This 117-nucleotide RNA sequence from Martelella alba belongs to the Rfam family "rpsB sRNA". Pairs were carried over by alignment from the consensus structure, which is taken from published work. NCBI's taxonomy places the organism under Bacteria, Pseudomonadati, Pseudomonadota, Aurantimonadaceae, Martelella.

[Rfam]
RNA sequence: CACACGCAGGCUUUGGGAUCUUCCGGGAGAAAUCCGGCUGGUUCCGCCGGUGAUGACCGUUCUUAAGGGCGUUCAUUCAUGGGCUUGCGGAGGUUAAACCGGAAAAGGAGAAAAGGC
Numbered sequence: 001c002a003c004a005c006g007c008a009g010g011c012u013u014u015g016g017g018a019u020c021u022u023c024c025g026g027g028a029g030a031a032a033u034c035c036g037g038c039u040g041g042u043u044c045c046g047c048c049g050g051u052g053a054u055g056a057c058c059g060u061u062c063u064u065a066a067g068g069g070c071g072u073u074c075a076u077u078c079a080u081g082g083g084c085u086u087g088c089g090g091a092g093g094u095u096a097a098a099c100c101g102g103a104a105a106a107g108g109a110g111a112a113a114a115g116g117c
Stems, first nucleotide, its partner, number of pairs: 001092001003090001005089007015045002023037002026035001052077005
It scores 52 bits against the family's covariance model.